[Rfam]
RNA: RNase MRP
Organism: Zosterops borbonicus
RNA sequence: GGAUGUUCUGAAGACCUGCUCGCUUGGCCAUGCACAGAGGACAUUGGUUCCCUAUGGACCUUACGCCCACCCAGGGGAAAGUCCCUGGACCACCAGCAGAGAGCGCCGGCCGCUGACAUGCUCCUGCCUGCCACCCUCCACUGAGACACCCACGGGCUGAGCAGGUGAGUGCGAGGCAGGCCCUUGUCUCAGCCACAGAUACGCAGGCAGCACGGCAGGCAUGCCAACAGAACAGGGCUUACUCUCAGGCAUU
Numbered sequence: 001g002g003a004u005g006u007u008c009u010g011a012a013g014a015c016c017u018g019c020u021c022g023c024u025u026g027g028c029c030a031u032g033c034a035c036a037g038a039g040g041a042c043a044u045u046g047g048u049u050c051c052c053u054a055u056g057g058a059c060c061u062u063a064c065g066c067c068c069a070c071c072c073a074g075g076g077g078a079a080a081g082u083c084c085c086u087g088g089a090c091c092a093c094c095a096g097c098a099g100a101g102a103g104c105g106c107c108g109g110c111c112g113c114u115g116a117c118a119u120g121c122u123c124c125u126g127c128c129u130g131c132c133a134c135c136c137u138c139c140a141c142u143g144a145g146a147c148a149c150c151c152a153c154g155g156g157c158u159g160a161g162c163a164g165g166u167g168a169g170u171g172c173g174a175g176g177c178a179g180g181c182c183c184u185u186g187u188c189u190c191a192g193c194c195a196c197a198g199a200u201a202c203g204c205a206g207g208c209a210g211c212a213c214g215g216c217a218g219g220c221a222u223g224c225c226a227a228c229a230g231a232a233c234a235g236g237g238c239u240u241a242c243u244c245u246c247a248g249g250c251a252u253u
Base pairs, nucleotide, nucleotide: 002253003252004251005250007249008248009247010246011245015207016206017205018204019203023074024073026071027070037052039050040049041048042047079240080239081238083237084236085235086234096106097105108125109124112121113120127180128179129178131176132175133170134169136167138164141161149156150155210224211223212222214220
Dot-bracket structure: .((((.(((((...(((((...((.((.........(.((((....)))).).................)).))....[[[.[[[[.........((.......)).((..((......))..)).(((.((((.(.(..(.......((....))....)..)..).))....)).)))......................)))))..(((.(.....).))).........]]]]]]]....)))))))))